Overview: The family of this 106-nucleotide RNA from Bacillus sp. MUM 116 is "SAM riboswitch aptamer (S box leader)". The organism belongs to Bacillus, within Bacteria. A search with the family's covariance model found it, with a score of 91 bits.
RNA sequence: UUCUUAUCCAGAGAGGUGGAGGGACUGGCCCUAAGAAACCUCAGCAACAGGUCUGACAAGACACUGUGCUAAUUCCUGCGGGUGAUGAUACCUUGAUAGAUAAGAG
Numbered sequence: 001u002u003c004u005u006a007u008c009c010a011g012a013g014a015g016g017u018g019g020a021g022g023g024a025c026u027g028g029c030c031c032u033a034a035g036a037a038a039c040c041u042c043a044g045c046a047a048c049a050g051g052u053c054u055g056a057c058a059a060g061a062c063a064c065u066g067u068g069c070u071a072a073u074u075c076c077u078g079c080g081g082g083u084g085a086u087g088a089u090a091c092c093u094u095g096a097u098a099g100a101u102a103a104g105a106g
Base pairs, nucleotide, nucleotide: 001106002105003104004103005102006101007100008099013042014041015040016039017038021031022030023029025078027076028075043070044069045068046067048066049065051062052061053060054059074098079095080094081093082092